[Rfam]
RNA sequence: GCAGACUCACUCUGCAUCCAACUGCAGCCCCAGUCUGGGUGCUUUUUUCGUCUGCCAGAGAAACACCUGGCCGCCAUGUGGGCCUCGACUUGUCGAUGGCACUGCAGCUGGCCGGGGACAGUGGU
Dot-bracket structure: ((((((.......(((((((.(((......)))..))))))).......))))))..........(((((((((..((...(((.............)))..))..)).))))))).........
This 125-nucleotide RNA from Dasypus novemcinctus belongs to the Rfam family "Small nucleolar RNA SNORA77". About the family: ACA63 (SNORA77) is a member of the H/ACA class of snoRNAs that guide the sites of modification of uridines to pseudouridines. This snoRNA was identified by computational screening and its expression in mouse experimentally verified by Northern blot and primer extension analysis. ACA63 is proposed to guide the pseudouridylation of 18S rRNA U814. Lineage of the source: Eukaryota > Eumetazoa > Chordata > Craniata > Dasypus. Rfam 15.1 lists 843 matches to the family in 607 species.